The family of this 363-nucleotide sequence from Phenylobacterium hankyongense is "Alphaproteobacteria transfer-messenger RNA".
For this family Rfam cites "Phylogenetic analysis of tmRNA secondary structure" (Williams and Bartel, RNA, 1996).
Its Rfam clan is "tRNA clan".
Bacterial tmRNA, also known as 10Sa RNA or SsrA, is named for its dual tRNA and mRNA-like properties. Its role is to liberate the mRNA from a stalled ribosome. To accomplish this part of the tmRNA is used as a reading frame that ends in a translation stop signal. The broken mRNA is replaced in the ribosome by the tmRNA and translation of the tmRNA leads to addition of a proteolysis tag to the incomplete protein enabling recognition by a protease.
Gene Ontology term of the family: RNA catabolic process.
Taxonomically the source falls in Phenylobacterium (Bacteria, Pseudomonadati, Caulobacterales, Caulobacteraceae).

RNA sequence: GUCCUUCAGUUUUCAACGGCCAGCCCCUAUAUUGGGCAUGUCGAGCUUCGGCCCGACUAUGGAGAUAAACGCGCGCGUAAUAAGCGGACUGGACCCGGGUGCGAUUCCCGGCGGCUCCACCAACCUUCCUUCCGGGUAUCGCCGGGAAGCAUGGGGCCGAUCAGCAUCGACAGACGUCUAAAGGCGUUGCUUUCUCCCGGCUUGGCCCACCGUUUCGGGCCUUUAACUAACUGCGAACGAUAACUUCGCUGAGGAAAUCCGUCUCGCCGCGUAAUGCGGUGCGAUGAAAUUCCGACCUAAGUCCUAGGGGUUCAGAUCCUUAGGCGGGGCCCGGAGGGCGCCUGCCAACAGAAGCCCUCCACC
Numbered sequence: 001g002u003c004c005u006u007c008a009g010u011u012u013u014c015a016a017c018g019g020c021c022a023g024c025c026c027c028u029a030u031a032u033u034g035g036g037c038a039u040g041u042c043g044a045g046c047u048u049c050g051g052c053c054c055g056a057c058u059a060u061g062g063a064g065a066u067a068a069a070c071g072c073g074c075g076c077g078u079a080a081u082a083a084g085c086g087g088a089c090u091g092g093a094c095c096c097g098g099g100u101g102c103g104a105u106u107c108c109c110g111g112c113g114g115c116u117c118c119a120c121c122a123a124c125c126u127u128c129c130u131u132c133c134g135g136g137u138a139u140c141g142c143c144g145g146g147a148a149g150c151a152u153g154g155g156g157c158c159g160a161u162c163a164g165c166a167u168c169g170a171c172a173g174a175c176g177u178c179u180a181a182a183g184g185c186g187u188u189g190c191u192u193u194c195u196c197c198c199g200g201c202u203u204g205g206c207c208c209a210c211c212g213u214u215u216c217g218g219g220c221c222u223u224u225a226a227c228u229a230a231c232u233g234c235g236a237a238c239g240a241u242a243a244c245u246u247c248g249c250u251g252a253g254g255a256a257a258u259c260c261g262u263c264u265c266g267c268c269g270c271g272u273a274a275u276g277c278g279g280u281g282c283g284a285u286g287a288a289a290u291u292c293c294g295a296c297c298u299a300a301g302u303c304c305u306a307g308g309g310g311u312u313c314a315g316a317u318c319c320u321u322a323g324g325c326g327g328g329g330c331c332c333g334g335a336g337g338g339c340g341c342c343u344g345c346c347a348a349c350a351g352a353a354g355c356c357c358u359c360c361a362c363c
Base pairs, nucleotide, nucleotide: 040057041056042055043054061197062196063195064194065193071190072189073187074186075185076184085176086175089173090172091171095111096110097109098108099107112159113158114157115156116155117154118153198212199211200210204221205220206219207218208217327343328342329341330340333360334359335358336357337356338355